[Rfam]
RNA sequence: CAGUGUGGAUGAUGAGAACAUGAAAAAAAAUACAGUUAUCCCUGUCUGAUAAGUUUACAUGGGUGCUGAAAAUAUUUAAUCUGACACAUAU
Numbered sequence: 001c002a003g004u005g006u007g008g009a010u011g012a013u014g015a016g017a018a019c020a021u022g023a024a025a026a027a028a029a030a031u032a033c034a035g036u037u038a039u040c041c042c043u044g045u046c047u048g049a050u051a052a053g054u055u056u057a058c059a060u061g062g063g064u065g066c067u068g069a070a071a072a073u074a075u076u077u078a079a080u081c082u083g084a085c086a087c088a089u090a091u
Base pairs, nucleotide, nucleotide: 003089004088005087006086007085
Dot-bracket structure: ..(((((.............................................................................)))))..
Small nucleolar RNA R38: a 91-nucleotide RNA from Elaeis guineensis. On this family, see Bachellerie et al., Trends Biochem Sci 1995: "Antisense snoRNAs: a family of nucleolar RNAs with long complementarities to rRNA". Rfam links the family to the GO terms nucleolus and RNA processing. About the family: snoR38 is a C/D box small nucleolar RNA conserved across yeast, human, Arabidopsis and rice. It is encoded in the intron of elongation factor-1 gamma in both pombe and cerevisiae. snoR38 guides the methylation of 2'-O-ribose sites in 28S rRNA. A search with the family's covariance model found it, with a score of 72 bits. Taxonomically the source falls in Elaeis (Eukaryota, commelinids, Arecales, Elaeidinae).